The family of this 117-nucleotide RNA sequence from Sediminicola sp. YIK13 is "Bacteroidete tryptophan peptide leader RNA".

RNA sequence: CUCCCUAUAUUUGGGGCUCAAUGAAAAACAGAAUAGCAAAUACUUGGUGGUGGAAAAACUUACGAACAACGUCGUGAGCAGAGCAUCAUUGUAGUUAUACUAUAUAAAAGGCUUGUC
Number, nucleotide and partner (000 for none) at each position: 001c000002u000003c000004c000005c000006u000007a000008u000009a000010u000011u000012u000013g000014g000015g000016g000017c000018u000019c000020a000021a000022u000023g000024a000025a000026a000027a000028a000029c000030a000031g000032a000033a000034u000035a000036g100037c000038a098039a000040a096041u000042a095043c094044u093045u000046g090047g089048u000049g087050g086051u085052g084053g000054a000055a000056a000057a000058a000059c078060u077061u076062a072063c071064g070065a000066a000067c000068a000069a000070c064071g063072u062073c000074g000075u000076g061077a060078g059079c000080a000081g000082a000083g000084c052085a051086u050087c049088a000089u047090u046091g000092u000093a044094g043095u042096u040097a000098u038099a000100c036101u000102a000103u000104a000105u000106a000107a000108a000109a000110g000111g000112c000113u000114u000115g000116u000117c000
It scores 59 bits against the family's covariance model. By type it is a cis-regulatory leader. Taxonomically the source falls in Sediminicola (Bacteria, Flavobacteriia, Flavobacteriales, Flavobacteriaceae). The family's consensus secondary structure is taken from published work.